Rfam assigns this 86-nucleotide RNA from Desulforamulus ferrireducens to the family "Group II catalytic intron D1-D4-1". Pairs were carried over by alignment from the consensus structure. About the family: Group II introns are found in rRNA, tRNA and mRNA of organelles in fungi, plants and protists, and also in mRNA in bacteria. Its family is annotated with Group II intron splicing in the Gene Ontology.

[Rfam]
RNA sequence: UAACCCAUGUAGAGAUGCAUGGCUGAAUCGGCAGGAGUCAGCAGAGGCCAUAGUACCUGCGAAGAGACGUCUGAGCAGGGAAGGGC
Numbered sequence: 001u002a003a004c005c006c007a008u009g010u011a012g013a014g015a016u017g018c019a020u021g022g023c024u025g026a027a028u029c030g031g032c033a034g035g036a037g038u039c040a041g042c043a044g045a046g047g048c049c050a051u052a053g054u055a056c057c058u059g060c061g062a063a064g065a066g067a068c069g070u071c072u073g074a075g076c077a078g079g080g081a082a083g084g085g086c
Stems, first nucleotide, its partner, number of pairs: 001025002005022007038045002047086003056079005
On this family, see Chu et al., EMBO J 2001: "Control of branch-site choice by a group II intron". The match comes from Rfam's covariance-model search (72 bits).